The record is a 138-nucleotide sequence from Aedes aegypti, which matches "Small nucleolar RNA SNORA14" in Rfam. Rfam 15.1 lists 848 matches to the family in 633 species. The organism belongs to Stegomyia, within Eukaryota. Rfam links the family to the GO terms nucleolus and RNA processing. ACA14 is a member of the H/ACA class of snoRNA that guide the sites of modification of uridines to pseudouridines.
[Rfam]
RNA sequence: CUGAAUUUUCCUUGGAAAUUAUUCCAGGAUAAUUUCCAAGGAAAAUUCAGGAGAAUUUCCAAGGGAAAUUCAGGAGAAUUUCCAAGGGAAAUUCAGGAGAUUCAGGAGGAAUUCUCCUGAAUUUCCCUUGGAAAUUCU
Number, nucleotide and partner (000 for none) at each position: 001c000002u000003g048004a047005a046006u045007u000008u000009u000010c041011c040012u039013u038014g037015g036016a000017a034018a033019u032020u000021a000022u000023u000024c000025c000026a000027g000028g000029a000030u000031a000032a019033u018034u017035u000036c015037c014038a013039a012040g011041g010042a000043a000044a000045a006046u005047u004048c003049a000050g000051g000052a138053g137054a136055a000056u000057u133058u132059c131060c130061a129062a128063g127064g000065g000066a000067a000068a000069u000070u120071c119072a118073g117074g116075a115076g114077a000078a112079u111080u000081u000082c108083c000084a000085a000086g000087g000088g000089a000090a000091a000092u000093u000094c000095a000096g000097g000098a000099g000100a000101u000102u000103c000104a000105g000106g000107a000108g082109g000110a000111a079112u078113u000114c076115u075116c074117c073118u072119g071120a070121a000122u000123u000124u000125c000126c000127c063128u062129u061130g060131g059132a058133a057134a000135u000136u054137c053138u052